RNA sequence: GGGAGGUGUGAUCCCACACUCGCUGGGAGGUCUGAUCCCAUGCUCCCUGGGAGGUCUGAUCCCCUGCUUUCC
Numbered sequence: 001g002g003g004a005g006g007u008g009u010g011a012u013c014c015c016a017c018a019c020u021c022g023c024u025g026g027g028a029g030g031u032c033u034g035a036u037c038c039c040a041u042g043c044u045c046c047c048u049g050g051g052a053g054g055u056c057u058g059a060u061c062c063c064c065u066g067c068u069u070u071c072c
Base pairs, nucleotide, nucleotide: 001071002070003069004068005067015058016057018055020053023050024049025048026047027046029044031042033040034039